[Rfam]
RNA sequence: CCUGCGGGCCGGGCCCCUCUGACGUCGCGCUUGAUGCGCACGUGAUGUCGGACCGCUGAA
Numbered sequence: 001c002c003u004g005c006g007g008g009c010c011g012g013g014c015c016c017c018u019c020u021g022a023c024g025u026c027g028c029g030c031u032u033g034a035u036g037c038g039c040a041c042g043u044g045a046u047g048u049c050g051g052a053c054c055g056c057u058g059a060a
Stems, first nucleotide, its partner, number of pairs: 006054002009051004022043004027039004